[Rfam]
RNA sequence: CCGACCGAAACAUGUCGAAGCAUGACCUCUCCCGAGGUAGUUCGUGCGGUAGAGCCACCGAUUGAGAGACCCGCCUCCGAGAGGAGUCGGCCUCUCUGUCGAACUCCGAACGUACGAACGCUGUCGACGGAGGGAGUCCGGUGUCCCGGGGUAAGCUUGGGCACCGUGAGGGGAACAACCCAGAGUUAGGUUAAUGACCCAAAAUGUGGAUUAAGUGUAAUCCUCUGAAGGUAGUCUUGAGCCCUAAACAGCCGGGAGGUGAGCUUAGAAGCAGCUACCCGCUAAGAAAAGCGUAACAGCUUACCGGCCGAGGUUCAAGGCGCCCAAAAUGAACGGGACUCAAAUCCACUUCUGAUACCUAACCGUCCCUGUAACAAGGGAACCGUGUAGGUCGGCGUACUGUGCGGAUGGAAGCCCGGGCGAGAGCUCGCGUGGACCGCUCAGUAACGACAAU
Numbered sequence: 001c002c003g004a005c006c007g008a009a010a011c012a013u014g015u016c017g018a019a020g021c022a023u024g025a026c027c028u029c030u031c032c033c034g035a036g037g038u039a040g041u042u043c044g045u046g047c048g049g050u051a052g053a054g055c056c057a058c059c060g061a062u063u064g065a066g067a068g069a070c071c072c073g074c075c076u077c078c079g080a081g082a083g084g085a086g087u088c089g090g091c092c093u094c095u096c097u098g099u100c101g102a103a104c105u106c107c108g109a110a111c112g113u114a115c116g117a118a119c120g121c122u123g124u125c126g127a128c129g130g131a132g133g134g135a136g137u138c139c140g141g142u143g144u145c146c147c148g149g150g151g152u153a154a155g156c157u158u159g160g161g162c163a164c165c166g167u168g169a170g171g172g173g174a175a176c177a178a179c180c181c182a183g184a185g186u187u188a189g190g191u192u193a194a195u196g197a198c199c200c201a202a203a204a205u206g207u208g209g210a211u212u213a214a215g216u217g218u219a220a221u222c223c224u225c226u227g228a229a230g231g232u233a234g235u236c237u238u239g240a241g242c243c244c245u246a247a248a249c250a251g252c253c254g255g256g257a258g259g260u261g262a263g264c265u266u267a268g269a270a271g272c273a274g275c276u277a278c279c280c281g282c283u284a285a286g287a288a289a290a291g292c293g294u295a296a297c298a299g300c301u302u303a304c305c306g307g308c309c310g311a312g313g314u315u316c317a318a319g320g321c322g323c324c325c326a327a328a329a330u331g332a333a334c335g336g337g338a339c340u341c342a343a344a345u346c347c348a349c350u351u352c353u354g355a356u357a358c359c360u361a362a363c364c365g366u367c368c369c370u371g372u373a374a375c376a377a378g379g380g381a382a383c384c385g386u387g388u389a390g391g392u393c394g395g396c397g398u399a400c401u402g403u404g405c406g407g408a409u410g411g412a413a414g415c416c417c418g419g420g421c422g423a424g425a426g427c428u429c430g431c432g433u434g435g436a437c438c439g440c441u442c443a444g445u446a447a448c449g450a451c452a453a454u
Stems, first nucleotide, its partner, number of pairs: 001395006011024005026136001027134006036122003040119008052107001053105002060100003064096005073088001075086004140165007148158002170181003185363007196352002204350001206349006230324003234321010251308005258280002262276003282286001287302001291300002364385002366381005396449001398446005404440004414433002417430005
RNA: Archaeal large subunit ribosomal RNA, nucleotides 905 to 1358
Organism: Halobaculum gomorrense